Annotation:
Shown here is a 111-nucleotide RNA sequence from Araneus ventricosus, a member of the family "Fusobacteriales-1 RNA". By type it is a cis-regulatory element. A search with the family's covariance model found it, with a score of 59 bits.
Nucleotides: 111
Stems, first nucleotide, its partner, number of pairs: 007020001012033007046059001051072007085098001090111007
Number, partner (000 for none) and nucleotide at each position: 001000c002000a003000u004000u005000a006000a007020g008000u009000u010000u011000c012033u013032c014031u015030c016029a017028g018027u019000u020007u021000g022000a023000u024000u025000a026000a027018a028017c029016u030015g031014g032013g033012a034000a035000u036000a037000c038000u039000c040000c041000a042000u043000u044000a045000a046059g047000u048000u049000u050000c051072u052071c053070u054069c055068a056067g057066u058000u059046u060000g061000a062000u063000u064000a065000a066057a067056c068055u069054g070053a071052g072051a073000a074000u075000a076000c077000u078000c079000c080000a081000u082000u083000a084000a085098g086000u087000u088000u089000c090111u091110c092109u093108c094107a095106g096105u097000u098085u099000g100000a101000u102000u103000a104000a105096a106095c107094u108093g109092a110091g111090a